Background: Rfam assigns this 206-nucleotide sequence from Corynebacterium halotolerans to the family "c-di-AMP riboswitch aptamer (ydaO/yuaA leader)".
RNA sequence: UGAAAACUAAGCCGAAUCUCCGCCCACGCCGUACCCACUCCGGGACGGCCGGGCGGGGAGCCGGGGAACCACCACAGACCAUCUGGGGUGAAUCCUCCGCGAGAGCGCCGCACGAUCCUCACCGGUCCGUGCGGCGUGGGCCGGGGGAGGGAAGCUUCCGUACUCCCAACCCGCCAGCUAACCCGGUAGGCACACAGGAAGAUUUG
Numbered sequence: 001u002g003a004a005a006a007c008u009a010a011g012c013c014g015a016a017u018c019u020c021c022g023c024c025c026a027c028g029c030c031g032u033a034c035c036c037a038c039u040c041c042g043g044g045a046c047g048g049c050c051g052g053g054c055g056g057g058g059a060g061c062c063g064g065g066g067a068a069c070c071a072c073c074a075c076a077g078a079c080c081a082u083c084u085g086g087g088g089u090g091a092a093u094c095c096u097c098c099g100c101g102a103g104a105g106c107g108c109c110g111c112a113c114g115a116u117c118c119u120c121a122c123c124g125g126u127c128c129g130u131g132c133g134g135c136g137u138g139g140g141c142c143g144g145g146g147g148a149g150g151g152a153a154g155c156u157u158c159c160g161u162a163c164u165c166c167c168a169a170c171c172c173g174c175c176a177g178c179u180a181a182c183c184c185g186g187u188a189g190g191c192a193c194a195c196a197g198g199a200a201g202a203u204u205u206g
Stems, first nucleotide, its partner, number of pairs: 011191003017059009060187006070085002086172003094146004149166003